[Rfam]
RNA sequence: AGUCCUACUUUUGUCGGAAAAAGAUUUUGAACUGUGUCAGGGCUGAAAAGAAGCAGCACUUAUAAAUAUUUUUUUGGACAAUUGUAGGCCUCCG
Numbered sequence: 001a002g003u004c005c006u007a008c009u010u011u012u013g014u015c016g017g018a019a020a021a022a023g024a025u026u027u028u029g030a031a032c033u034g035u036g037u038c039a040g041g042g043c044u045g046a047a048a049a050g051a052a053g054c055a056g057c058a059c060u061u062a063u064a065a066a067u068a069u070u071u072u073u074u075u076g077g078a079c080a081a082u083u084g085u086a087g088g089c090c091u092c093c094g
Base pairs, nucleotide, nucleotide: 004088005087006086007085008084009081012080013079014078015077018075019074020073021072022071024067025066026065027064034059035058036057037056043050044049
Rfam assigns this 94-nucleotide sequence to the family "Bacterial small signal recognition particle RNA".
The base pairs follow the family's consensus structure, which is taken from published work.
It scores 44 bits against the family's covariance model.
The family's RNA type in Rfam is non-coding RNA gene.